[Rfam]
A member of the RNA family "tRNA" from Penicillium cf. viridicatum, 127 nucleotides long.
RNA sequence: AGCAUGUUAGCUCAGGGGAAGAGCGCCGGGCUCAUAACCCGGAGGUACGUUUCACCGCAAACAAUUUCCCAAAUAACAUCCAACUAACAAUCACAAUAGGACCCUGGAUCGAAACCAGGACAUGCUA
Numbered sequence: 001a002g003c004a005u006g007u008u009a010g011c012u013c014a015g016g017g018g019a020a021g022a023g024c025g026c027c028g029g030g031c032u033c034a035u036a037a038c039c040c041g042g043a044g045g046u047a048c049g050u051u052u053c054a055c056c057g058c059a060a061a062c063a064a065u066u067u068c069c070c071a072a073a074u075a076a077c078a079u080c081c082a083a084c085u086a087a088c089a090a091u092c093a094c095a096a097u098a099g100g101a102c103c104c105u106g107g108a109u110c111g112a113a114a115c116c117a118g119g120a121c122a123u124g125c126u127a
Base pairs, nucleotide, nucleotide: 001126002125003124004123005122006121007120010024011023012022013021026042027041028040029039030038103119104118105117106116107115
The family's consensus secondary structure is taken from published work. Rfam classes the family as a transfer RNA. A search with the family's covariance model found it, with a score of 50 bits.